[Rfam]
RNA sequence: AAUUCAAAAUAACUCCGAGCCGUUUGCUCUAAGGCAAUAGCUAUGAUCUUGCGGCCGUUAGGGUUUACUGAGAAAUUGGUAAGCCUCCCCUGUGGAAAGGAGUACGGUAAUACUUGGC
Numbered sequence: 001a002a003u004u005c006a007a008a009a010u011a012a013c014u015c016c017g018a019g020c021c022g023u024u025u026g027c028u029c030u031a032a033g034g035c036a037a038u039a040g041c042u043a044u045g046a047u048c049u050u051g052c053g054g055c056c057g058u059u060a061g062g063g064u065u066u067a068c069u070g071a072g073a074a075a076u077u078g079g080u081a082a083g084c085c086u087c088c089c090c091u092g093u094g095g096a097a098a099g100g101a102g103u104a105c106g107g108u109a110a111u112a113c114u115u116g117g118c
Stems, first nucleotide, its partner, number of pairs: 003112001012103005019055005026048001028046002033042003061086011087095002
Dot-bracket structure: ..(........(((((..(((((..(.((...(((....)))..)).)..))))).....(((((((((((....)))))))))))((.....))...)))))........)......
A member of the RNA family "Molybdenum/Tungsten riboswitch aptamer (Moco RNA motif)" from Desulforamulus aquiferis, 118 nucleotides long. The base pairs follow the family's consensus structure, which is taken from published work. Rfam 15.1 lists 1,248 matches to the family in 836 species.